[Rfam]
RNA sequence: GCGGCGAAUGCCGGUGGAACUACAGCUUGAAAUGCCGUUGUCGCGGGUUCGAGUCCCGUCGGUCUUCUCGGAGGCCGUAGCUCAGUUGGUAGAGCACGAAUGUUUCAUCAACCCUUGUCGCCCCGCC
Dot-bracket structure: ..(((((.....(((((((...(.............((....(((((..[....)))))((((((......))))))..((((.....]..)))))))....)))))))........))))).....
RNA: Y RNA-like